This 448-nucleotide RNA from Halovivax ruber belongs to the Rfam family "Archaeal RNase P". About the family: Ribonuclease P (RNase P) is a ubiquitous endoribonuclease, found in archaea, bacteria and eukarya as well as chloroplasts and mitochondria. Its best characterised activity is the generation of mature 5'-ends of tRNAs by cleaving the 5'-leader elements of precursor-tRNAs. Gene Ontology terms of the family: multimeric ribonuclease P complex, tRNA processing and ribonuclease P activity. It is annotated as a ribozyme.

RNA sequence: GAGAUGAGCUACACAGCCAACGUGGUCCAUCCCGCCGGGACGGGCCACGCCUGCGAGGAAAGUCCCCCCACCUGCCGAACGGGUGACCGGACGCAAGUCCGGGGCGGGAGACCGCCGGCUCUGGAACAGAAACGACACGUCUCGGCCGGACCGAUGAGGCGAGCGAACCCGACCGAAAGGAAGGGGAGUUGACCCGCCGAGGGAGGGCGAUUCUCGGCAAUCAGCCGAGAAUCGCCGGAAUGUGAGGCGGCACGAGCCGCCGAACGGCGCGGUUCGGAGUGUCGCAGACACGAGAACCGCGCUUCCGAUGGCCGAGGAUCGAUGGAACGGCGAAUCCUCACCGGUGCAAGUCCACGCCGCUGGUAGUUCGGCACGCCGCGGCAUCGCCGCGGGCGGUGUGGACGCUUAGCCAAAUGCCGGGCCGAACAGAAGGGGGCUUACUCCUCUC
Numbered sequence: 001g002a003g004a005u006g007a008g009c010u011a012c013a014c015a016g017c018c019a020a021c022g023u024g025g026u027c028c029a030u031c032c033c034g035c036c037g038g039g040a041c042g043g044g045c046c047a048c049g050c051c052u053g054c055g056a057g058g059a060a061a062g063u064c065c066c067c068c069c070a071c072c073u074g075c076c077g078a079a080c081g082g083g084u085g086a087c088c089g090g091a092c093g094c095a096a097g098u099c100c101g102g103g104g105c106g107g108g109a110g111a112c113c114g115c116c117g118g119c120u121c122u123g124g125a126a127c128a129g130a131a132a133c134g135a136c137a138c139g140u141c142u143c144g145g146c147c148g149g150a151c152c153g154a155u156g157a158g159g160c161g162a163g164c165g166a167a168c169c170c171g172a173c174c175g176a177a178a179g180g181a182a183g184g185g186g187a188g189u190u191g192a193c194c195c196g197c198c199g200a201g202g203g204a205g206g207g208c209g210a211u212u213c214u215c216g217g218c219a220a221u222c223a224g225c226c227g228a229g230a231a232u233c234g235c236c237g238g239a240a241u242g243u244g245a246g247g248c249g250g251c252a253c254g255a256g257c258c259g260c261c262g263a264a265c266g267g268c269g270c271g272g273u274u275c276g277g278a279g280u281g282u283c284g285c286a287g288a289c290a291c292g293a294g295a296a297c298c299g300c301g302c303u304u305c306c307g308a309u310g311g312c313c314g315a316g317g318a319u320c321g322a323u324g325g326a327a328c329g330g331c332g333a334a335u336c337c338u339c340a341c342c343g344g345u346g347c348a349a350g351u352c353c354a355c356g357c358c359g360c361u362g363g364u365a366g367u368u369c370g371g372c373a374c375g376c377c378g379c380g381g382c383a384u385c386g387c388c389g390c391g392g393g394c395g396g397u398g399u400g401g402a403c404g405c406u407u408a409g410c411c412a413a414a415u416g417c418c419g420g421g422c423c424g425a426a427c428a429g430a431a432g433g434g435g436g437c438u439u440a441c442u443c444c445u446c447u448c
Stems, first nucleotide, its partner, number of pairs: 006448003011442001012421001014419001016417002021055005060439003064436005069346004082342005087102005103116005117337002122333001124331001138321002141316008159285004350403004357396005